[Rfam]
RNA sequence: ACGUACCGGAAGUACGUUCCGGUUCCUGCGCUCCGUCCGCCUAGCCUGGCGGCGGCUCGCAACGAAGCCUCUCAGCC
Numbered sequence: 001a002c003g004u005a006c007c008g009g010a011a012g013u014a015c016g017u018u019c020c021g022g023u024u025c026c027u028g029c030g031c032u033c034c035g036u037c038c039g040c041c042u043a044g045c046c047u048g049g050c051g052g053c054g055g056c057u058c059g060c061a062a063c064g065a066a067g068c069c070u071c072u073c074a075g076c077c
Stems, first nucleotide, its partner, number of pairs: 002016005020035003025030001046075004051070002
The record is a 77-nucleotide RNA sequence from Roseateles sp. DAIF2, which matches "Xanthomonas sRNA sX9" in Rfam. The family's consensus secondary structure was predicted with RNAalifold. By type it is a small RNA.